[Rfam]
RNA sequence: CAGGUCAGGCUGCAGUCUGUCUGCCUGUCUGUGCCUGCUGUACAGGCGCGGAAAGUUCUGCACAGCAAGUGUAGACAGGCAGACAGACAACACUUUCAGU
Numbered sequence: 001c002a003g004g005u006c007a008g009g010c011u012g013c014a015g016u017c018u019g020u021c022u023g024c025c026u027g028u029c030u031g032u033g034c035c036u037g038c039u040g041u042a043c044a045g046g047c048g049c050g051g052a053a054a055g056u057u058c059u060g061c062a063c064a065g066c067a068a069g070u071g072u073a074g075a076c077a078g079g080c081a082g083a084c085a086g087a088c089a090a091c092a093c094u095u096u097c098a099g100u
Stems, first nucleotide, its partner, number of pairs: 017086003022081009034069001036067006043060003

Rfam assigns this 100-nucleotide RNA sequence from Chanos chanos to the family "mir-214 microRNA precursor family". The literature on the family includes a 2008 paper in Gene by Shao et al., "Identification of novel chicken microRNAs and analysis of their genomic organization". The organism belongs to Chanos, within Eukaryota.